[Rfam]
RNA: pan motif
Organism: Exobacillus caeni
RNA sequence: UGGGCGGUAUCCACUAAUGGAACUGCACCUUUUAAAGCCAUUUAAAAAUAGUCUGCCUUGAUCCAAUACGGACUGGGACAGAGGG
Numbered sequence: 001u002g003g004g005c006g007g008u009a010u011c012c013a014c015u016a017a018u019g020g021a022a023c024u025g026c027a028c029c030u031u032u033u034a035a036a037g038c039c040a041u042u043u044a045a046a047a048a049u050a051g052u053c054u055g056c057c058u059u060g061a062u063c064c065a066a067u068a069c070g071g072a073c074u075g076g077g078a079c080a081g082a083g084g085g
Stems, first nucleotide, its partner, number of pairs: 002029002004026005010021002053081003056077003060073001062072003